[Rfam]
RNA: PyrR binding site
RNA sequence: AGUACCUUUAAUUUUAGUCCAGUGAGGCUGACAAGGUAAACGGAAAAGUUCUGCGCUUGUUGCAGAGUCGUUUUGGUGAAGUACAGGCUUCUUGUCAUUGCUGGCAGGAAGCUUUUUUUG
Numbered sequence: 001a002g003u004a005c006c007u008u009u010a011a012u013u014u015u016a017g018u019c020c021a022g023u024g025a026g027g028c029u030g031a032c033a034a035g036g037u038a039a040a041c042g043g044a045a046a047a048g049u050u051c052u053g054c055g056c057u058u059g060u061u062g063c064a065g066a067g068u069c070g071u072u073u074u075g076g077u078g079a080a081g082u083a084c085a086g087g088c089u090u091c092u093u094g095u096c097a098u099u100g101c102u103g104g105c106a107g108g109a110a111g112c113u114u115u116u117u118u119u120g
Base pairs, nucleotide, nucleotide: 003038004037005036006035007034008033014031015030016029017028018027019026041075042074043073044072045071048068049067050066051065052064053063054062083116085114086113087112088111089110090109091108092107093106094105095104096103
Dot-bracket structure: ..((((((.....((((((......)))))).))))))..(((((..(((((((.......)))))))..))))).......(.((((((((((((......)))))))))))).)....